This 47-nucleotide RNA sequence from Halomonas sp. DQ26W belongs to the Rfam family "Guanidine-II riboswitch aptamer (mini-ykkC)". On this family, see Weinberg et al., Nucleic Acids Res 2007: "Identification of 22 candidate structured RNAs in bacteria using the CMfinder comparative genomics pipeline". Taxonomically the source falls in Halomonas (Bacteria, Pseudomonadota, Gammaproteobacteria, Halomonadaceae).
Nucleotides: 047
Stems, first nucleotide, its partner, number of pairs: 001016006034047005
Number, partner (000 for none) and nucleotide at each position: 001016c002015c003014g004013g005012g006011g007000a008000c009000g010000a011006c012005c013004c014003c015002g016001g017000a018000u019000g020000c021000g022000g023000c024000u025000g026000a027000c028000a029000c030000g031000g032000a033000c034047g035046c036045g037044g038043g039000a040000c041000g042000a043038c044037c045036c046035g047034c